[Rfam]
RNA sequence: GAUUUAUACAGAUGAGGGGAGAGACCAGGCUCUGCGAACCUCAGGCAACCUACCCAUUGGCAAGGUGCUACAUCCUGCCCACAGCAUGGUGCUGCUGGGAGAUAUAAACC
Dot-bracket structure: (.((((((....(((((...(((..[[[[)))......)))))((((.(((.((....)).).))))))...(]]]]((((..............))))..))))))).)
RNA: SAM riboswitch aptamer (S box leader)